[Rfam]
RNA: Plant signal recognition particle RNA
Organism: Handroanthus impetiginosus
RNA sequence: AAUAUUUUAUGUACGGUAAAAAACACGCUCAAGUGAGAGUAUUAAAGUGAUUGAACAUUAGACUGGCCCAAGUUAUUGGACUCAAACUGCUAAUUGUUGGCCUACCCAUUCCAAGCAUGGGAAGGACCUUGGGGCACAAGCAAAUGUUUGAGCUUCAUGACCCUUAGGGUGGAGGGCACUGCGUUAAAGGUUUUUCCAUGGAGCAAUGACUACCUCUCGCUCAUUGCAGUGGAAGGAUAAUAGGCCGAAACAUCUUAAGUAAACAAAGUGAGUUGGGUCAUUCCUAAUUGGAUAGUUACUUUU
Number, nucleotide and partner (000 for none) at each position: 001a040002a000003u038004a000005u022006u021007u020008u019009a000010u000011g000012u000013a000014c000015g000016g000017u000018a000019a008020a007021a006022a005023a000024c000025a000026c000027g000028c037029u036030c035031a000032a000033g000034u000035g030036a029037g028038a003039g000040u001041a000042u000043u000044a302045a301046a300047g299048u298049g297050a296051u295052u294053g293054a000055a000056c290057a289058u287059u286060a285061g283062a282063c000064u280065g279066g278067c000068c276069c275070a274071a273072g000073u271074u270075a269076u268077u267078g000079g000080a260081c259082u258083c000084a256085a255086a000087c000088u252089g251090c000091u250092a000093a000094u000095u000096g000097u248098u247099g246100g245101c244102c243103u242104a241105c000106c236107c235108a000109u234110u233111c232112c231113a230114a000115g227116c226117a225118u223119g222120g221121g220122a000123a000124g163125g162126a000127c000128c159129u000130u157131g156132g155133g154134g153135c152136a000137c150138a149139a148140g147141c146142a000143a000144a000145u000146g141147u140148u139149u138150g137151a000152g135153c134154u133155u132156c131157a130158u000159g128160a000161c000162c125163c124164u169165u000166a000167g000168g000169g164170u000171g217172g216173a215174g214175g213176g000177c000178a000179c000180u000181g000182c208183g207184u206185u000186a000187a000188a000189g000190g000191u201192u200193u000194u000195u000196c000197c000198a000199u000200g192201g191202a000203g000204c000205a000206a184207u183208g182209a000210c000211u000212a000213c175214c174215u173216c172217u171218c000219g000220c121221u120222c119223a118224u000225u117226g116227c115228a000229g000230u113231g112232g111233a110234a109235g107236g106237a000238u000239a000240a000241u104242a103243g102244g101245c100246c099247g098248a097249a000250a091251c089252a088253u000254c000255u085256u084257a000258a082259g081260u080261a000262a000263a000264c000265a000266a000267a077268g076269u075270g074271a073272g000273u071274u070275g069276g068277g000278u066279c065280a064281u000282u062283c061284c000285u060286a059287a058288u000289u057290g056291g000292a000293u053294a052295g051296u050297u049298a048299c047300u046301u045302u044303u000